RNA sequence: AGGUCUGCAGUUCACCUAGACGUUGCCACCCAAACGGGAUGCUAAACCUGCCU
Numbered sequence: 001a002g003g004u005c006u007g008c009a010g011u012u013c014a015c016c017u018a019g020a021c022g023u024u025g026c027c028a029c030c031c032a033a034a035c036g037g038g039a040u041g042c043u044a045a046a047c048c049u050g051c052c053u
Stems, first nucleotide, its partner, number of pairs: 001017004029038003

Rfam assigns this 53-nucleotide RNA from Kordiimonas sediminis to the family "COG3860 RNA". Lineage of the source: Bacteria > Alphaproteobacteria > Kordiimonadales > Kordiimonadaceae > Kordiimonas.